[Rfam]
RNA sequence: CUUUCCAUUGAUUUACUACUCUAGUCUUUUAGUGAUAUGAGCAGUUAUACACAUGGGAGAGAACAAUAUUAGGCUGUUGUAAAUGAAGAUGGAAUAACCAUUUCAUCUCUUCUACAAAGUCCAGGUAUUG
Numbered sequence: 001c002u003u004u005c006c007a008u009u010g011a012u013u014u015a016c017u018a019c020u021c022u023a024g025u026c027u028u029u030u031a032g033u034g035a036u037a038u039g040a041g042c043a044g045u046u047a048u049a050c051a052c053a054u055g056g057g058a059g060a061g062a063a064c065a066a067u068a069u070u071a072g073g074c075u076g077u078u079g080u081a082a083a084u085g086a087a088g089a090u091g092g093a094a095u096a097a098c099c100a101u102u103u104c105a106u107c108u109c110u111u112c113u114a115c116a117a118a119g120u121c122c123a124g125g126u127a128u129u130g
Stems, first nucleotide, its partner, number of pairs: 003058006015045003019041003022037002025035002069124002072121004078116004087108009

Small nucleolar RNA SNORA20: a 130-nucleotide RNA from Mustela putorius. Rfam links the family to the GO terms RNA processing and nucleolus. ACA20 is a member of the H/ACA class of snoRNA that guide the sites of modification of uridines to pseudouridines. Taxonomically the source falls in Mustela putorius (Eukaryota, Opisthokonta, Gnathostomata, Theria). It scores 107 bits against the family's covariance model. By type it is an H/ACA-box small nucleolar RNA.